[Rfam]
RNA: Bacterial large subunit ribosomal RNA, nucleotides 1359 to 1827
Organism: Frankia sp. R43
Nucleotides: 469
Stems, first nucleotide, its partner, number of pairs: 005023006024467004032447004038427002043067006052060002074423004079110002084105003088101001090099003114131005134419004139414006241405002246401005254388004260381003265375005271292006293351002297346004304339003308331007316324002355366004433442002449461004
Number, partner (000 for none) and nucleotide at each position: 001000g002000a003000a004000u005023g006022a007021c008020g009019g010018g011000u012000g013000a014000g015000a016000a017000u018010c019009c020008c021007g022006u023005c024467c025466g026465c027464c028000g029000a030000a031000u032447g033446a034445c035444c036000a037000a038427g039426g040000g041000u042000u043067c044066c045065u046064g047063g048062g049000g050000c051000a052060g053059g054000c055000u056000u057000u058000u059053c060052c061000g062048c063047c064046c065045a066044g067043g068000g069000u070000g071000a072000g073000u074423c075422g076421g077420g078000a079110c080109c081000u082000a083000a084105g085104g086103c087000g088101a089000g090099g091098c092097c093000g094000a095000c096000a097092g098091g099090c100000g101088u102000a103086g104085u105084c106000g107000a108000u109080g110079g111000a112000c113000a114131a115130c116129g117128g118127g119000u120000u121000g122000a123000u124000a125000u126000u127118c128117c129116c130115g131114u132000a133000c134419c135418g136417g137416c138000g139414c140413u141412g142411a143410c144409g145000c146000g147000c148000c149000c150000a151000u152000g153000c154000u155000g156000a157000a158000c159000c160000u161000g162000g163000u164000u165000g166000u167000g168000c169000u170000a171000a172000c173000c174000g175000u176000u177000c178000u179000g180000g181000u182000u183000c184000u185000u186000g187000u188000u189000c190000u191000g192000c193000u194000u195000u196000c197000g198000g199000g200000u201000g202000g203000g204000g205000c206000u207000u208000g209000g210000g211000c212000u213000g214000g215000u216000c217000g218000g219000g220000a221000u222000c223000c224000u225000g226000g227000c228000c229000a230000g231000u232000a233000g234000u235000a236000g237000g238000c239000a240000a241405g242404c243000g244000a245000u246401g247400g248399g249398g250397u251000g252000a253000c254388g255387c256386a257385g258000g259000a260381g261380g262379a263000u264000a265375g266374u267373c268372c269371a270000a271292c272291c273290c274289a275288g276287g277000a278000g279000g280000u281000g282000g283000u284000u285000u286000u287276c288275c289274u290273g291272g292271g293351g294350c295000a296000a297346g298345g299344g300343u301000g302000u303000a304339g305338g306337g307000c308331g309330a310329g311328a312327c313326g314325u315000a316324g317323g318000c319000a320000a321000a322000u323317c324316c325314g326313c327312g328311u329310c330309u331308u332000g333000u334000g335000u336000g337306c338305c339304u340000g341000a342000g343300a344299c345298c346297u347000g348000a349000u350294g351293c352000c353000g354000a355366g356365c357364c358363g359000a360000u361000u362000g363358u364357g365356g366355c367000g368000a369000a370000g371269u372268g373267g374266g375265u376000g377000a378000u379262u380261c381260c382000a383000u384000g385257c386256u387255g388254c389000c390000g391000a392000g393000a394000a395000a396000a397250g398249c399248c400247u401246c402000u403000a404242g405241c406000g407000a408000g409144u410143g411142u412141c413140a414139g415000g416137g417136c418135c419134g420077c421076c422075c423074g424000u425000a426039c427038c428000c429000u430000a431000a432000a433442c434441c435000g436000a437000c438000a439000c440000a441434g442433g443000u444035g445034g446033u447032c448000a449461g450460g451459u452458a453000g454000a455000g456000a457000a458452u459451a460450c461449c462000g463000a464027g465026g466025c467024g468000u469000g